Source information:
Shown here is a 118-nucleotide RNA from Ensifer meliloti, a member of the family "Alphaproteobacterial ar14".
RNA sequence: AACUGUCGAUGGAACACUCCUCCUCCCAGUUCCAUCGCGGGAUCGGCAACCCUCCUCCUCCCAGUUGCCGGUCAGGAUCGAAAGCCCGGCGCACCUCCUCCCGCGCCGGGUUUUCUCU
Number, nucleotide and partner (000 for none) at each position: 001a000002a000003c000004u000005g000006u000007c037008g036009a035010u034011g033012g032013a031014a030015c029016a000017c000018u000019c000020c000021u000022c000023c000024u000025c000026c000027c000028a000029g015030u014031u013032c012033c011034a010035u009036c008037g007038c000039g000040g000041g073042a072043u071044c070045g069046g068047c067048a066049a065050c064051c000052c000053u000054c000055c000056u000057c000058c000059u000060c000061c000062c000063a000064g050065u049066u048067g047068c046069c045070g044071g043072u042073c041074a000075g000076g000077a000078u000079c000080g000081a000082a113083a112084g111085c110086c109087c108088g107089g106090c105091g104092c103093a000094c000095c000096u000097c000098c000099u000100c000101c000102c000103g092104c091105g090106c089107c088108g087109g086110g085111u084112u083113u082114u000115c000116u000117c000118u000

Notes
The family's RNA type in Rfam is small RNA. Rfam's curators write: Smr14C2 was renamed NfeR1 (Nodule Formation Efficiency RNA) highly expressed in salt stress and during the symbiotic interaction on legume roots.